[Rfam]
Shown here is a 149-nucleotide sequence from Shinella sp. WSJ-2, a member of the family "Alphaproteobacterial sRNA ar7". Pairs were carried over by alignment from the consensus structure. The literature on the family includes a 2012 paper in RNA Biol by del Val et al., "A survey of sRNA families in alpha-proteobacteria".
RNA sequence: CAUCGGCACCUGAUCAAGCCGCUGUCUGGCAUCCCGGCCUGUCCCCCGCCGCGCCAGACAAGGACAAAGGCCUCAUCCCCCUCUCCGGGCCUUUGUCCAUCUUUCGUGAGAAGCCGCCGCGACAAGCCUCCUGUCGUCGGCGGCUUCUC
Numbered sequence: 001c002a003u004c005g006g007c008a009c010c011u012g013a014u015c016a017a018g019c020c021g022c023u024g025u026c027u028g029g030c031a032u033c034c035c036g037g038c039c040u041g042u043c044c045c046c047c048g049c050c051g052c053g054c055c056a057g058a059c060a061a062g063g064a065c066a067a068a069g070g071c072c073u074c075a076u077c078c079c080c081c082u083c084u085c086c087g088g089g090c091c092u093u094u095g096u097c098c099a100u101c102u103u104u105c106g107u108g109a110g111a112a113g114c115c116g117c118c119g120c121g122a123c124a125a126g127c128c129u130c131c132u133g134u135c136g137u138c139g140g141c142g143g144c145u146u147c148u149c
Stems, first nucleotide, its partner, number of pairs: 025058006036050003062098011111145001114143006120136005
Dot-bracket structure: ........................((((((.....(((.........)))..))))))...(((((((((((...............)))))))))))............(..(((((((((((.......))))).)))))).)....